[Rfam]
Background:
Rfam assigns this 259-nucleotide sequence from Massilia eurypsychrophila to the family "permuted transfer-messenger RNA".
RNA sequence: UGUCGUAAUCCCAUCCAUGUGAUGGCGUGUUGGACGCGGGUUCGAAUCCCGCCAGCUCCACCAGGAGCGCACUAAGCAACAGUUGGCACGGCGCAUAGUCCAUGACGCGAAAGCGGUAGCCGAAAUUAGUGCUCUCCCCCUGGGGCUGUAUCGGUCUCGACAGCGCGCAGCAGCGGAAGAUGGCGGCACGGUAGGCGACGACCGUAAAUCGAGCAAAAGCAGAAAUGCAAACGACGCAGAAUUCAAGGUCGCGGCUUAC
Numbered sequence: 001u002g003u004c005g006u007a008a009u010c011c012c013a014u015c016c017a018u019g020u021g022a023u024g025g026c027g028u029g030u031u032g033g034a035c036g037c038g039g040g041u042u043c044g045a046a047u048c049c050c051g052c053c054a055g056c057u058c059c060a061c062c063a064g065g066a067g068c069g070c071a072c073u074a075a076g077c078a079a080c081a082g083u084u085g086g087c088a089c090g091g092c093g094c095a096u097a098g099u100c101c102a103u104g105a106c107g108c109g110a111a112a113g114c115g116g117u118a119g120c121c122g123a124a125a126u127u128a129g130u131g132c133u134c135u136c137c138c139c140c141u142g143g144g145g146c147u148g149u150a151u152c153g154g155u156c157u158c159g160a161c162a163g164c165g166c167g168c169a170g171c172a173g174c175g176g177a178a179g180a181u182g183g184c185g186g187c188a189c190g191g192u193a194g195g196c197g198a199c200g201a202c203c204g205u206a207a208a209u210c211g212a213g214c215a216a217a218a219g220c221a222g223a224a225a226u227g228c229a230a231a232c233g234a235c236g237c238a239g240a241a242u243u244c245a246a247g248g249u250c251g252c253g254g255c256u257u258a259c
Stems, first nucleotide, its partner, number of pairs: 001188005014177003026167003030163003036052005053148007189204004
A reference for the family is Williams and Bartel (1996), "Phylogenetic analysis of tmRNA secondary structure", RNA. The family's RNA type in Rfam is non-coding RNA gene. The sequence is in the family's curated seed alignment.